The family of this 84-nucleotide RNA from Bacillus thermotolerans is "c-di-GMP-I riboswitch aptamer".
Gene Ontology term of the family: cyclic-di-GMP binding.
The source organism's lineage runs through Bacteria, Bacillati, Caryophanales, Bacillaceae and Bacillus.
From the family's description: GEMM was predicted in a large-scale screen for bacterial structured RNA regulatory elements.
It scores 81 bits against the family's covariance model.
[Rfam]
RNA sequence: UUGAGUGAAAGGCAAACUUAUCGAAAGAUAAGGACGCAAAGCCACAGGUCUAAGGCAAAAAGCUAGGAUGGCUGGGCUGCCGGC
Numbered sequence: 001u002u003g004a005g006u007g008a009a010a011g012g013c014a015a016a017c018u019u020a021u022c023g024a025a026a027g028a029u030a031a032g033g034a035c036g037c038a039a040a041g042c043c044a045c046a047g048g049u050c051u052a053a054g055g056c057a058a059a060a061a062g063c064u065a066g067g068a069u070g071g072c073u074g075g076g077c078u079g080c081c082g083g084c
Stems, first nucleotide, its partner, number of pairs: 012037002017032006040078004045074003048069003055063002